[Rfam]
RNA sequence: UAAUAUCUUCAGGGCGGGGCGUGAAUCCCCACCGGCGGUAAAGCCCGCGAGCUAGAAAUAGCAGAUUCGGUUAAACUCCGAAGCCGACAGUAUAGUCUGGAUGAAAGAAGGUAAAG
Number, nucleotide and partner (000 for none) at each position: 001u000002a000003a000004u113005a112006u111007c110008u109009u108010c107011a000012g000013g000014g000015c000016g000017g029018g028019g027020c000021g000022u000023g000024a000025a000026u000027c019028c018029c017030c000031a096032c095033c086034g085035g048036c047037g046038g045039u000040a000041a000042a000043g084044c083045c038046c037047g036048c035049g000050a000051g062052c061053u060054a000055g000056a000057a000058a000059u000060a053061g052062c051063a000064g000065a000066u082067u081068c080069g079070g078071u000072u000073a000074a000075a000076c000077u000078c070079c069080g068081a067082a066083g044084c043085c034086g033087a000088c099089a098090g097091u000092a000093u000094a000095g032096u031097c090098u089099g088100g000101a000102u000103g000104a000105a000106a000107g010108a009109a008110g007111g006112u005113a004114a000115a000116g000
RNA: FMN riboswitch aptamer (RFN element)
Organism: Clostridium gasigenes